[Rfam]
RNA sequence: AGCAGGGAAGAGAAAGAAGCGGGUCUAAGAGAUGUAGGAAUGGGAACAUGAAGAAAAUCAACUGUAAUGCUCCUCUACUAUUGGAGGGGAGAAACGUUCUGAUGUUUCUGAUGCCUCCCAUUCCUAUGGAUCUUAGGUUCUCCUUCCUCUCACUUUUUGCU
Numbered sequence: 001a002g003c004a005g006g007g008a009a010g011a012g013a014a015a016g017a018a019g020c021g022g023g024u025c026u027a028a029g030a031g032a033u034g035u036a037g038g039a040a041u042g043g044g045a046a047c048a049u050g051a052a053g054a055a056a057a058u059c060a061a062c063u064g065u066a067a068u069g070c071u072c073c074u075c076u077a078c079u080a081u082u083g084g085a086g087g088g089g090a091g092a093a094a095c096g097u098u099c100u101g102a103u104g105u106u107u108c109u110g111a112u113g114c115c116u117c118c119c120a121u122u123c124c125u126a127u128g129g130a131u132c133u134u135a136g137g138u139u140c141u142c143c144u145u146c147c148u149c150u151c152a153c154u155u156u157u158u159g160c161u
Stems, first nucleotide, its partner, number of pairs: 010151004016145002021142003024137007033128001035126011047113003051109001053108004
RNA: MIR2118 microRNA precursor family
Organism: Triticum aestivum